[Rfam]
Record summary: A member of the RNA family "mir-1304 microRNA precursor family" from Pan troglodytes, 87 nucleotides long. Lineage of the source: Eukaryota > Craniata > Boreoeutheria > Haplorrhini > Pan. Its family is annotated with miRNA-mediated post-transcriptional gene silencing and RISC complex in the Gene Ontology.
RNA sequence: AUCACUUGAGCCCAGGAGUUCGAGGCUACAGUGAGAUGUGGCUGGAUCACAUCUCACUGUAGCCUCGAACUCCUGGGCUCAAGUGUU
Numbered sequence: 001a002u003c004a005c006u007u008g009a010g011c012c013c014a015g016g017a018g019u020u021c022g023a024g025g026c027u028a029c030a031g032u033g034a035g036a037u038g039u040g041g042c043u044g045g046a047u048c049a050c051a052u053c054u055c056a057c058u059g060u061a062g063c064c065u066c067g068a069a070c071u072c073c074u075g076g077g078c079u080c081a082a083g084u085g086u087u
Base pairs, nucleotide, nucleotide: 003085004084005083006082007081008080009079010078011077012076013075014074015073018070019069020068021067022066023065024064025063026062027061028060029059030058031057032056033055034054035053036052037051038050039049040048